[Rfam]
The record is a 289-nucleotide RNA, which matches "raiA RNA" in Rfam. Rfam's curators put it in the seed alignment.

RNA sequence: AGUUUCCAGGUCUGUGGUUGCAAGUCGAAGCCAGCUGCAGGCUAAACGACCCACGUAAGGCGGCAGUAUAGUGCCGCUGAUCAUGGUGCGGCUUAGAAGUAAGCCCGACCAGGUUUUCAUGGAACCGUAAGGAAGGACGCUACAAGAAUCCCCGCUUUUCUAUGCCGUGGAUCCAGCGACUCCCCAAGGAUGCCAAAAACCUGAGAGAAGAAGUAGUGAGGAAGGCCAACCUUUAUUAGCGAAACUUCCUGUCGGCGGGUGUGGGGUCAAGCCAGGUCAGCUGGAACGA
Numbered sequence: 001a002g003u004u005u006c007c008a009g010g011u012c013u014g015u016g017g018u019u020g021c022a023a024g025u026c027g028a029a030g031c032c033a034g035c036u037g038c039a040g041g042c043u044a045a046a047c048g049a050c051c052c053a054c055g056u057a058a059g060g061c062g063g064c065a066g067u068a069u070a071g072u073g074c075c076g077c078u079g080a081u082c083a084u085g086g087u088g089c090g091g092c093u094u095a096g097a098a099g100u101a102a103g104c105c106c107g108a109c110c111a112g113g114u115u116u117u118c119a120u121g122g123a124a125c126c127g128u129a130a131g132g133a134a135g136g137a138c139g140c141u142a143c144a145a146g147a148a149u150c151c152c153c154g155c156u157u158u159u160c161u162a163u164g165c166c167g168u169g170g171a172u173c174c175a176g177c178g179a180c181u182c183c184c185c186a187a188g189g190a191u192g193c194c195a196a197a198a199a200c201c202u203g204a205g206a207g208a209a210g211a212a213g214u215a216g217u218g219a220g221g222a223a224g225g226c227c228a229a230c231c232u233u234u235a236u237u238a239g240c241g242a243a244a245c246u247u248c249c250u251g252u253c254g255g256c257g258g259g260u261g262u263g264g265g266g267u268c269a270a271g272c273c274a275g276g277u278c279a280g281c282u283g284g285a286a287c288g289a
Stems, first nucleotide, its partner, number of pairs: 002287004007283003012280003015274005028262001030260001031041001033093007050086002055081001058078002062074001084269001105255005110203008207248004216240002222233003